Overview: The family of this 105-nucleotide RNA sequence from Prunus yedoensis is "MIR6274 microRNA precursor family". Its family is annotated with miRNA-mediated post-transcriptional gene silencing and RISC complex in the Gene Ontology. The family's consensus secondary structure was predicted with RNAalifold.

RNA sequence: GGAUAGCACUGUUUUGCUAUCCCUGGCCAAUAACAUAAUGACAUGUGAAAAAGUUAUCUAACGUGUCAUUACGUUAUUGGUCGGGGAUAGCAAAAAGUGUUAUCA
Dot-bracket structure: .((((......(((((((((.(((((((((((((.(((((((((((.(.(......).).))))))))))).))))))))))))).))))))))).....)))).

The match comes from Rfam's covariance-model search (90 bits).